[Rfam]
RNA: Small nucleolar RNA snR191
RNA sequence: ACCCAAAGACCUUUGUCAGGGUGACGACCGUGGUCUCCGGACCACACCUUAUCUACGUCGUUGUCUGUUACGUCCUUGGAAGAUCAAUGCUACCCGCCUGUGGUCCCGUGUGCCGUUUUGGUGCGCGGUGCUCUUGCCGUUUUGGCUCGAGCCUUGUCCACGCCUGCCGAUAGUUUUUAUUGGCAAUUCAGGGUAGCCACGGAAUCUUGUUGAGUUGGACCUACCCCACCUUAUGGGUUUGUCCGUAGUAUAGAAGCCGACACUU
Numbered sequence: 001a002c003c004c005a006a007a008g009a010c011c012u013u014u015g016u017c018a019g020g021g022u023g024a025c026g027a028c029c030g031u032g033g034u035c036u037c038c039g040g041a042c043c044a045c046a047c048c049u050u051a052u053c054u055a056c057g058u059c060g061u062u063g064u065c066u067g068u069u070a071c072g073u074c075c076u077u078g079g080a081a082g083a084u085c086a087a088u089g090c091u092a093c094c095c096g097c098c099u100g101u102g103g104u105c106c107c108g109u110g111u112g113c114c115g116u117u118u119u120g121g122u123g124c125g126c127g128g129u130g131c132u133c134u135u136g137c138c139g140u141u142u143u144g145g146c147u148c149g150a151g152c153c154u155u156g157u158c159c160a161c162g163c164c165u166g167c168c169g170a171u172a173g174u175u176u177u178u179a180u181u182g183g184c185a186a187u188u189c190a191g192g193g194u195a196g197c198c199a200c201g202g203a204a205u206c207u208u209g210u211u212g213a214g215u216u217g218g219a220c221c222u223a224c225c226c227c228a229c230c231u232u233a234u235g236g237g238u239u240u241g242u243c244c245g246u247a248g249u250a251u252a253g254a255a256g257c258c259g260a261c262a263c264u265u
Stems, first nucleotide, its partner, number of pairs: 003079004019066010030045005090196006099162005105156001107151001109149002112147001114145001167183007200259003205254003216245005223238004